[Rfam]
A member of the RNA family "MIR2912 microRNA precursor family" from Populus deltoides, 156 nucleotides long. The source organism's lineage runs through Eukaryota, eudicotyledons, Pentapetalae, Saliceae and Populus.

RNA sequence: UCUAGAACUCAAGAUAUUGGCUGAAUACUGAACAGUGUCUAGACUGCAAAACAGAUUUAAACUUCUCUUUUGAUGAUAAGAUUGGACUUUUUGAAUGACAUAAUUGAGUCUUAGACUCCUAAUAAAUGUUUUAGGCUUAUGUCUUAGUUUUCUAGC
Numbered sequence: 001u002c003u004a005g006a007a008c009u010c011a012a013g014a015u016a017u018u019g020g021c022u023g024a025a026u027a028c029u030g031a032a033c034a035g036u037g038u039c040u041a042g043a044c045u046g047c048a049a050a051a052c053a054g055a056u057u058u059a060a061a062c063u064u065c066u067c068u069u070u071u072g073a074u075g076a077u078a079a080g081a082u083u084g085g086a087c088u089u090u091u092u093g094a095a096u097g098a099c100a101u102a103a104u105u106g107a108g109u110c111u112u113a114g115a116c117u118c119c120u121a122a123u124a125a126a127u128g129u130u131u132u133a134g135g136c137u138u139a140u141g142u143c144u145u146a147g148u149u150u151u152c153u154a155g156c
Stems, first nucleotide, its partner, number of pairs: 002155006008147002011145007019137002021134005027129002035123002042118002045115001048112002051109002054105004063097001072088001074086001